This 87-nucleotide sequence from Cicer arietinum belongs to the Rfam family "Small nucleolar RNA R44/J54/Z268 family". It scores 61 bits against the family's covariance model. Rfam links the family to the GO terms RNA processing and nucleolus. The family's RNA type in Rfam is C/D-box small nucleolar RNA. Rfam 15.1 lists 1,168 matches to the family in 228 species.
RNA sequence: UAUGUAUAUGAUGACAAAAAAGACAACGACAUCAACACUCCAACUGAGAAUGUUGAUUUAGUCUAAUGGGAAUCUCUAUUAUGCGUU
Numbered sequence: 001u002a003u004g005u006a007u008a009u010g011a012u013g014a015c016a017a018a019a020a021a022g023a024c025a026a027c028g029a030c031a032u033c034a035a036c037a038c039u040c041c042a043a044c045u046g047a048g049a050a051u052g053u054u055g056a057u058u059u060a061g062u063c064u065a066a067u068g069g070g071a072a073u074c075u076c077u078a079u080u081a082u083g084c085g086u087u
Stems, first nucleotide, its partner, number of pairs: 002086005